[Rfam]
RNA sequence: GUGUCAAGCCAAGCAUACACUAGUUGCAAGCAUUGGAAUCGGCACUAUAAAGUACCAAGUCUAGUUA
Numbered sequence: 001g002u003g004u005c006a007a008g009c010c011a012a013g014c015a016u017a018c019a020c021u022a023g024u025u026g027c028a029a030g031c032a033u034u035g036g037a038a039u040c041g042g043c044a045c046u047a048u049a050a051a052g053u054a055c056c057a058a059g060u061c062u063a064g065u066u067a
Stems, first nucleotide, its partner, number of pairs: 004041001009036002012034001013031002019065005
Annotation: The family of this 67-nucleotide sequence is "Exoribonuclease-resistant RNA (xrRNA) plant-infecting virus (class 3)". Exoribonuclease-resistant RNA (xrRNA) plant-infecting virus (class 3) is a ncRNA that was reported in Plant viruses. A reference for the family is Steckelberg et al. (2020), "The crystal structure of a Polerovirus exoribonuclease-resistant RNA shows how diverse sequences are integrated into a conserved fold", RNA. It is annotated as a cis-regulatory element.